Source information: Rfam assigns this 78-nucleotide RNA sequence from Salmo trutta to the family "mir-103/107 microRNA precursor family". The match comes from Rfam's covariance-model search (80 bits).
[Rfam]
RNA sequence: CUUUGCUUUUAGCUUCUCUACAGUGCUGUCUUGUAGAGUCAUGUUCAAACAGCAUUGUACAGGGUUAUGACAGCGUAG
Dot-bracket structure: .............((((.((((((((((..(((............))).)))))))))).))))..............

Taxonomically the source falls in Salmo (Eukaryota, Actinopterygii, Actinopteri, Protacanthopterygii). The literature on the family includes a 2002 paper in Genes Dev by Mourelatos et al., "miRNPs: a novel class of ribonucleoproteins containing numerous microRNAs". Its family is annotated with miRNA-mediated post-transcriptional gene silencing and RISC complex in the Gene Ontology. About the family: This family consists of the mammalian microRNA (miRNA) precursors mir-103 and mir107. Animal miRNAs are transcribed as ~70nt precursors and subsequently processed by the Dicer enzyme to give a ~22nt product. In this case the mature sequence comes from the 3' arm of the precursor. The extents of the hairpin precursors are not generally known and are estimated based on hairpin prediction. Rfam 15.1 lists 1,982 matches to the family in 645 species.